This 176-nucleotide RNA sequence from Clostridium sp. CAG:510 belongs to the Rfam family "Lysine riboswitch aptamer".
RNA sequence: AACAAAGAUAGAGGUUGCGUUUUUCAAGAGUAGUUUUUCUGAUGUGACAGGCACAGGUGAGGAAAGAUAAAAGGGGAACACGCCGAAAGAGGAGAUGACCUGUGAAUCAAGUCUUGGGCAUGCGGUUAAAAACCGUAUGACUGUCAUCUAUGAUUAGAUGGGGCGCUAUCGGUAAA
Numbered sequence: 001a002a003c004a005a006a007g008a009u010a011g012a013g014g015u016u017g018c019g020u021u022u023u024u025c026a027a028g029a030g031u032a033g034u035u036u037u038u039c040u041g042a043u044g045u046g047a048c049a050g051g052c053a054c055a056g057g058u059g060a061g062g063a064a065a066g067a068u069a070a071a072a073g074g075g076g077a078a079c080a081c082g083c084c085g086a087a088a089g090a091g092g093a094g095a096u097g098a099c100c101u102g103u104g105a106a107u108c109a110a111g112u113c114u115u116g117g118g119c120a121u122g123c124g125g126u127u128a129a130a131a132a133c134c135g136u137a138u139g140a141c142u143g144u145c146a147u148c149u150a151u152g153a154u155u156a157g158a159u160g161g162g163g164c165g166c167u168a169u170c171g172g173u174a175a176a
Base pairs, nucleotide, nucleotide: 007170008169009168010167011166017083018082019081020080022078023077024076025075033068034067035066036065037064038063039062040061087115088114089113090112094108095107096106116142117141119139120138121137122136123135124134125133126132144161145160146159147158148157149156150155
NCBI's taxonomy places the organism under Bacteria, Bacillati, Bacillota, Eubacteriales, Clostridium.